[Rfam]
RNA: transfer-messenger RNA
RNA sequence: GGGGCCGACUUGGAUUUGACAGCGAUUGAGUUGGGUUAGUAUAAGCAUGUCGAGACAUGAGGUGAGUCUCGUUAAUCCCUGGUCUCAAACGAUAAUUGACAACACGUCAUACGCUCUUGCAGCUUAAUAACUGAAUGUUAUUCGGCUUAAUCCACUCUGAAGCACAGUAAGAGGGACAAGUUCCUCCCCGGCCUCCCCGCCUUUUGGAAGCUGGAAUCGGAGGGAUCAACAAAUAAAGGCUGGUAGGCGGCUUGCUUCGGGCCAAAUACGAGAUCUAAAGAAGCUAAGCGAUGUUACGGGUGUUUGCCUCCACUGCAUCGUCGAAAAUUUAAGCGCAGACUAAGCAUGUAGAAGGCUAAUGUAGCCAUUGUUUGGACGAGGGUUCGAACCCCUCCGGCUCCACAA
Numbered sequence: 001g002g003g004g005c006c007g008a009c010u011u012g013g014a015u016u017u018g019a020c021a022g023c024g025a026u027u028g029a030g031u032u033g034g035g036u037u038a039g040u041a042u043a044a045g046c047a048u049g050u051c052g053a054g055a056c057a058u059g060a061g062g063u064g065a066g067u068c069u070c071g072u073u074a075a076u077c078c079c080u081g082g083u084c085u086c087a088a089a090c091g092a093u094a095a096u097u098g099a100c101a102a103c104a105c106g107u108c109a110u111a112c113g114c115u116c117u118u119g120c121a122g123c124u125u126a127a128u129a130a131c132u133g134a135a136u137g138u139u140a141u142u143c144g145g146c147u148u149a150a151u152c153c154a155c156u157c158u159g160a161a162g163c164a165c166a167g168u169a170a171g172a173g174g175g176a177c178a179a180g181u182u183c184c185u186c187c188c189c190g191g192c193c194u195c196c197c198c199g200c201c202u203u204u205u206g207g208a209a210g211c212u213g214g215a216a217u218c219g220g221a222g223g224g225a226u227c228a229a230c231a232a233a234u235a236a237a238g239g240c241u242g243g244u245a246g247g248c249g250g251c252u253u254g255c256u257u258c259g260g261g262c263c264a265a266a267u268a269c270g271a272g273a274u275c276u277a278a279a280g281a282a283g284c285u286a287a288g289c290g291a292u293g294u295u296a297c298g299g300g301u302g303u304u305u306g307c308c309u310c311c312a313c314u315g316c317a318u319c320g321u322c323g324a325a326a327a328u329u330u331a332a333g334c335g336c337a338g339a340c341u342a343a344g345c346a347u348g349u350a351g352a353a354g355g356c357u358a359a360u361g362u363a364g365c366c367a368u369u370g371u372u373u374g375g376a377c378g379a380g381g382g383u384u385c386g387a388a389c390c391c392c393u394c395c396g397g398c399u400c401c402a403c404a405a
Stems, first nucleotide, its partner, number of pairs: 001401007020374003025369001027367002032363002035360006042353001046348005051071005058087006116137001118135001120133003181225006188214004194208003199240006243269003249263001254284005288321007298311003302340004308333001378394005